[Rfam]
RNA: Streptomyces sRNA 4677
Organism: Streptomyces genisteinicus
RNA sequence: GGGGCCGGUGGGCCACGAACUCCCCAUAAGAACCUGGGGGAAAGAACCCCUGCCCUCCCUCCCCUCCCGGCCGGUCAGCCGUCCGUCACCCGGACGGGUGACCGGCUUGCGAGGGCGGGAGGGCGGCGGCUACGUUCGCCGCAACAACCGAAGACAUAUGCGGCCCCCGGCCGGGACGGCAAUCCCGAUCGAGGGCCUCACCGAUCUGGAAGAAGACGCUUCCCG
Numbered sequence: 001g002g003g004g005c006c007g008g009u010g011g012g013c014c015a016c017g018a019a020c021u022c023c024c025c026a027u028a029a030g031a032a033c034c035u036g037g038g039g040g041a042a043a044g045a046a047c048c049c050c051u052g053c054c055c056u057c058c059c060u061c062c063c064c065u066c067c068c069g070g071c072c073g074g075u076c077a078g079c080c081g082u083c084c085g086u087c088a089c090c091c092g093g094a095c096g097g098g099u100g101a102c103c104g105g106c107u108u109g110c111g112a113g114g115g116c117g118g119g120a121g122g123g124c125g126g127c128g129g130c131u132a133c134g135u136u137c138g139c140c141g142c143a144a145c146a147a148c149c150g151a152a153g154a155c156a157u158a159u160g161c162g163g164c165c166c167c168c169g170g171c172c173g174g175g176a177c178g179g180c181a182a183u184c185c186c187g188a189u190c191g192a193g194g195g196c197c198u199c200a201c202c203g204a205u206c207u208g209g210a211a212g213a214a215g216a217c218g219c220u221u222c223c224c225g
Stems, first nucleotide, its partner, number of pairs: 007202004011072004086101006114140005162197005168191002173186004208223005